Rfam assigns this 54-nucleotide RNA sequence to the family "sul1 RNA". The sequence is in the family's curated seed alignment.

[Rfam]
RNA sequence: AAUGGACCCGGCUGGACCGGGUGGCUAUCCUGGGCGCCGAUCCCUCAGGGACAC
Numbered sequence: 001a002a003u004g005g006a007c008c009c010g011g012c013u014g015g016a017c018c019g020g021g022u023g024g025c026u027a028u029c030c031u032g033g034g035c036g037c038c039g040a041u042c043c044c045u046c047a048g049g050g051a052c053a054c
Base pairs, nucleotide, nucleotide: 006022007021008020009019010018011017029049030048031047032046033045034044